[Rfam]
RNA sequence: GGGUGUGACGGGUUGGCCGUCACAGGAAUCUGGAAUGGUCGGGCCGCCAUUC
Numbered sequence: 001g002g003g004u005g006u007g008a009c010g011g012g013u014u015g016g017c018c019g020u021c022a023c024a025g026g027a028a029u030c031u032g033g034a035a036u037g038g039u040c041g042g043g044c045c046g047c048c049a050u051u052c
Base pairs, nucleotide, nucleotide: 005023006022007021008020009019010018011017033052034051035050036049037048038047039046